[Rfam]
Record summary:
Plastid-psbN 5UTR RNA: a 60-nucleotide RNA sequence from Gossypium raimondii. Rfam 15.1 lists 2,345 matches to the family in 397 species. Plastid psbN is a non-coding RNA (ncRNA) recognised in plastids. It was reported as a conserved 11 stem-loop in the prime untranslated region (5UTR) of psbN genes. It has been reported that the motif is retained in a subset of mature transcripts in barley, which can suggests a possible role in transcript alternative 5 prime processing.
RNA sequence: UGUGACACCUAUCAAAUGAGUCGUUCCCAUCCAGGGGCUACCUUACCAUAUUCCAAAUUC
Numbered sequence: 001u002g003u004g005a006c007a008c009c010u011a012u013c014a015a016a017u018g019a020g021u022c023g024u025u026c027c028c029a030u031c032c033a034g035g036g037g038c039u040a041c042c043u044u045a046c047c048a049u050a051u052u053c054c055a056a057a058u059u060c
Stems, first nucleotide, its partner, number of pairs: 018043001020041002023038005

Taxonomically the source falls in Gossypium (Eukaryota, Embryophyta, Euphyllophyta, Malvaceae).